[Rfam]
RNA sequence: CCUGGUGACCGGGCCCCUCUGGCGGACGUGGCGGCACGUUCGUGAUGUCGGCACUCUCU
Numbered sequence: 001c002c003u004g005g006u007g008a009c010c011g012g013g014c015c016c017c018u019c020u021g022g023c024g025g026a027c028g029u030g031g032c033g034g035c036a037c038g039u040u041c042g043u044g045a046u047g048u049c050g051g052c053a054c055u056c057u058c059u
Stems, first nucleotide, its partner, number of pairs: 006053002009051004022043008
Dot-bracket structure: .....((.((((.........((((((((......))))))))....))))))......